Rfam assigns this 72-nucleotide RNA sequence from Eptesicus fuscus to the family "mir-9209 microRNA precursor family".

[Rfam]
RNA sequence: AGAACAGUGGUCGGCAAACCGUGGCUCGCUAGCCACAUGCGGCUCGCCAGCCGUGAUUUGCCGCUCUGUUGA
Numbered sequence: 001a002g003a004a005c006a007g008u009g010g011u012c013g014g015c016a017a018a019c020c021g022u023g024g025c026u027c028g029c030u031a032g033c034c035a036c037a038u039g040c041g042g043c044u045c046g047c048c049a050g051c052c053g054u055g056a057u058u059u060g061c062c063g064c065u066c067u068g069u070u071g072a
Stems, first nucleotide, its partner, number of pairs: 003070005009065002012063007020055007028047002031044004

Overview
Gene Ontology terms of the family: RISC complex and miRNA-mediated post-transcriptional gene silencing. The sequence is in the family's curated seed alignment.